[Rfam]
RNA sequence: GUCCCGGACAAGACGUUAAACUGUCUGCUGCUGCAUACUGCGCCGAGUGAUCAACGGUGGCUCAACGGUCUGUGGCAGGACAAGUUAAUAUGCACGGCUGUCAAUUGAGCUGACGGCUGCAAUUCUGAAUGGAGUAAUCCAUCUGGAAUGCGGUCUGAUUCGUCAUGCCCAUUUGCCGGUAGAGAU
Numbered sequence: 001g002u003c004c005c006g007g008a009c010a011a012g013a014c015g016u017u018a019a020a021c022u023g024u025c026u027g028c029u030g031c032u033g034c035a036u037a038c039u040g041c042g043c044c045g046a047g048u049g050a051u052c053a054a055c056g057g058u059g060g061c062u063c064a065a066c067g068g069u070c071u072g073u074g075g076c077a078g079g080a081c082a083a084g085u086u087a088a089u090a091u092g093c094a095c096g097g098c099u100g101u102c103a104a105u106u107g108a109g110c111u112g113a114c115g116g117c118u119g120c121a122a123u124u125c126u127g128a129a130u131g132g133a134g135u136a137a138u139c140c141a142u143c144u145g146g147a148a149u150g151c152g153g154u155c156u157g158a159u160u161c162g163u164c165a166u167g168c169c170c171a172u173u174u175g176c177c178g179g180u181a182g183a184g185a186u
Base pairs, nucleotide, nucleotide: 028078029077030076031075032074034072035071037069038068039067040066041059042058043057044056045055060110061109062108063107064106065105095182097180098179099178100177116154117153118152119151120150129142130141131140132139133138
Annotation
Shown here is a 186-nucleotide RNA sequence, a member of the family "DUF2800 RNA". The family's RNA type in Rfam is cis-regulatory element.